[Rfam]
RNA sequence: GUCUGGAUGGUGUAGUCGGUUAUCACGCCAGUCUCACACACUGGAGGUCUCCGGUUCGAUUCCGGGUUCAGACA
Numbered sequence: 001g002u003c004u005g006g007a008u009g010g011u012g013u014a015g016u017c018g019g020u021u022a023u024c025a026c027g028c029c030a031g032u033c034u035c036a037c038a039c040a041c042u043g044g045a046g047g048u049c050u051c052c053g054g055u056u057c058g059a060u061u062c063c064g065g066g067u068u069c070a071g072a073c074a
Stems, first nucleotide, its partner, number of pairs: 001073007010026003028044005050066005
RNA: tRNA
Organism: Closterium sp. NIES-68